This 49-nucleotide RNA sequence from Methanofollis formosanus belongs to the Rfam family "eL15-Euryarchaeota ribosomal protein leader". A search with the family's covariance model found it, with a score of 34 bits. A reference for the family is Eckert and Weinberg (2020), "Discovery of 20 novel ribosomal leader candidates in bacteria and archaea", BMC Microbiol.
[Rfam]
RNA sequence: CGGGAUCCGUCCCGUUGAGGUAUGUGGCGCGCAAGCGCCGAACCUGAGG
Numbered sequence: 001c002g003g004g005a006u007c008c009g010u011c012c013c014g015u016u017g018a019g020g021u022a023u024g025u026g027g028c029g030c031g032c033a034a035g036c037g038c039c040g041a042a043c044c045u046g047a048g049g
Stems, first nucleotide, its partner, number of pairs: 001014005018045003026039005